[Rfam]
RNA: mir-160 microRNA precursor family
Organism: Hibiscus syriacus
RNA sequence: GCCUGCCUGGCUCCCUGAAUGCCAUCUGAGAAGCUCGUCAAACACCGUUGGCAACUUCUUACAUGGCAUGAGGGGAGUCAUGCAGGC
Number, nucleotide and partner (000 for none) at each position: 001g087002c086003c085004u084005g083006c082007c000008u080009g079010g078011c077012u076013c075014c074015c000016u072017g000018a000019a069020u068021g067022c066023c065024a064025u000026c000027u061028g060029a059030g000031a000032a000033g000034c000035u000036c000037g000038u000039c000040a000041a000042a000043c000044a000045c000046c000047g000048u000049u000050g000051g000052c000053a000054a000055c000056u000057u000058c000059u029060u028061a027062c000063a000064u024065g023066g022067c021068a020069u019070g000071a000072g016073g000074g014075g013076a012077g011078u010079c009080a008081u000082g006083c005084a004085g003086g002087c001